c-di-AMP riboswitch aptamer (ydaO/yuaA leader): a 197-nucleotide sequence from Kribbella amoyensis. Rfam links the family to the GO terms cyclic-di-AMP binding and regulation of gene expression. The match comes from Rfam's covariance-model search (64 bits). Rfam describes the family as follows. This family represents a conserved RNA structure found upstream of the ydaO and yuaA genes in Bacillus subtilis and related genes in other bacteria.
[Rfam]
RNA sequence: CGGCUCGCAACGCCGAGUUCCGCCCUCCGGGCCGGUGACCCCUCAAUGGCAUCCGAGGGCGGAAGUGGGGAAACCACAGGUUCUCCGGACCGGCCACGCCCACGGCCGGUCCUUGGGGCGAAGCCGCACCCCCGCGGCCGGGUAACACUUCCGAUCCGAGCCCGACAGCUAACCUCACAGGCGUGCAGGAAGGACUU
Numbered sequence: 001c002g003g004c005u006c007g008c009a010a011c012g013c014c015g016a017g018u019u020c021c022g023c024c025c026u027c028c029g030g031g032c033c034g035g036u037g038a039c040c041c042c043u044c045a046a047u048g049g050c051a052u053c054c055g056a057g058g059g060c061g062g063a064a065g066u067g068g069g070g071a072a073a074c075c076a077c078a079g080g081u082u083c084u085c086c087g088g089a090c091c092g093g094c095c096a097c098g099c100c101c102a103c104g105g106c107c108g109g110u111c112c113u114u115g116g117g118g119c120g121a122a123g124c125c126g127c128a129c130c131c132c133c134g135c136g137g138c139c140g141g142g143u144a145a146c147a148c149u150u151c152c153g154a155u156c157c158g159a160g161c162c163c164g165a166c167a168g169c170u171a172a173c174c175u176c177a178c179a180g181g182c183g184u185g186c187a188g189g190a191a192g193g194a195c196u197u
Stems, first nucleotide, its partner, number of pairs: 011183004018064010065178006075115002116163003124137004140157004